[Rfam]
This 95-nucleotide RNA sequence from Ureibacillus yapensis belongs to the Rfam family "Guanidine-I riboswitch aptamer". On this family, see Barrick et al., Proc Natl Acad Sci U S A 2004: "New RNA motifs suggest an expanded scope for riboswitches in bacterial genetic control". The base pairs follow the family's consensus structure.
RNA sequence: AGAAAAGUUUUCUAGGGUUCCGUAAGUUGCUGCUUAGUCUGGUCCGAGAGAAAACUGCGCGAAGCGUGACACGGAAGGACAAAAGCCUGGGAGAU
Numbered sequence: 001a002g003a004a005a006a007g008u009u010u011u012c013u014a015g016g017g018u019u020c021c022g023u024a025a026g027u028u029g030c031u032g033c034u035u036a037g038u039c040u041g042g043u044c045c046g047a048g049a050g051a052a053a054a055c056u057g058c059g060c061g062a063a064g065c066g067u068g069a070c071a072c073g074g075a076a077g078g079a080c081a082a083a084a085g086c087c088u089g090g091g092a093g094a095u
Stems, first nucleotide, its partner, number of pairs: 007055006015045002020042002022039001023036005056068005070090001072093001076088003